RNA sequence: GUGAAGUUAUUCACAAACAAACAUAUACCCCUUUGUUUGACCGUGAAAAUUUCUCCCAUCCCCUUUGUUCGUAACAUGGAAGAGAGGUACAGUGGACCACCCAUCUGCUGGACCUCUCU
Numbered sequence: 001g002u003g004a005a006g007u008u009a010u011u012c013a014c015a016a017a018c019a020a021a022c023a024u025a026u027a028c029c030c031c032u033u034u035g036u037u038u039g040a041c042c043g044u045g046a047a048a049a050u051u052u053c054u055c056c057c058a059u060c061c062c063c064u065u066u067g068u069u070c071g072u073a074a075c076a077u078g079g080a081a082g083a084g085a086g087g088u089a090c091a092g093u094g095g096a097c098c099a100c101c102c103a104u105c106u107g108c109u110g111g112a113c114c115u116c117u118c119u
Base pairs, nucleotide, nucleotide: 003053004052005051006050007049008048011046012045013044014043018039019038020037021036022035023034069080072078084116085115086114087113088112090110091109092108093107094106095105096104
RNA: RNA Staph. aureus E (RoxS)
Organism: Caldibacillus thermoamylovorans